[Rfam]
RNA: Xanthomonadaceae sRNA sX15
RNA sequence: GACGAGAGCACUCUGGCCAUGGCCCACGCUUGUGCAUUUCGAGUGGCUGCUCGAUCAACUGUUCGGGCUCUCAGCCAGAGGCGAGCGGGUGGCAGCUUGGCUCCCACGCGUGCUUUGAGCACUCCGGUCUUUCGGCUUGCCACCCGCCGCUCUCACCUCGAA
Numbered sequence: 001g002a003c004g005a006g007a008g009c010a011c012u013c014u015g016g017c018c019a020u021g022g023c024c025c026a027c028g029c030u031u032g033u034g035c036a037u038u039u040c041g042a043g044u045g046g047c048u049g050c051u052c053g054a055u056c057a058a059c060u061g062u063u064c065g066g067g068c069u070c071u072c073a074g075c076c077a078g079a080g081g082c083g084a085g086c087g088g089g090u091g092g093c094a095g096c097u098u099g100g101c102u103c104c105c106a107c108g109c110g111u112g113c114u115u116u117g118a119g120c121a122c123u124c125c126g127g128u129c130u131u132u133c134g135g136c137u138u139g140c141c142a143c144c145c146g147c148c149g150c151u152c153u154c155a156c157c158u159c160g161a162a
Stems, first nucleotide, its partner, number of pairs: 001157001004154005011080005016070001020066001022064001025061002036055002041052004085147009094137004110122004